[Rfam]
Nucleotides: 084
Stems, first nucleotide, its partner, number of pairs: 013068006020061009033052004
Number, partner (000 for none) and nucleotide at each position: 001000c002000u003000c004000g005000g006000c007000c008000u009000g010000a011000a012000c013068c014067u015066g016065g017064c018063a019000u020061a021060c022059a023058a024057u025056g026055u027054a028053g029000a030000u031000u032000c033052c034051u035050g036049u037000g038000u039000u040000g041000u042000u043000u044000g045000a046000g047000c048000u049036a050035c051034a052033g053028c054027u055026a056025c057024a058023u059022u060021g061020u062000c063018u064017g065016c066015u067014g068013g069000g070000u071000u072000u073000c074000a075000g076000g077000g078000g079000g080000g081000u082000c083000u084000c